[Rfam]
RNA sequence: GCACUUCUGGAAAGCAGUCGCCCCGCAGGUGCGGCUCACCCACGGUGCAAACCGUCUUCGUUGCGCGAGGACGGUGAAGCUCUCAGGUUCCGAUGACAGAAGGGGAGGG
Numbered sequence: 001g002c003a004c005u006u007c008u009g010g011a012a013a014g015c016a017g018u019c020g021c022c023c024c025g026c027a028g029g030u031g032c033g034g035c036u037c038a039c040c041c042a043c044g045g046u047g048c049a050a051a052c053c054g055u056c057u058u059c060g061u062u063g064c065g066c067g068a069g070g071a072c073g074g075u076g077a078a079g080c081u082c083u084c085a086g087g088u089u090c091c092g093a094u095g096a097c098a099g100a101a102g103g104g105g106a107g108g109g
Stems, first nucleotide, its partner, number of pairs: 002104001004102006016036006038088003042083001045082001047080001051075010

A member of the RNA family "Glycine riboswitch aptamer" from Streptomyces sp. SID3343, 109 nucleotides long.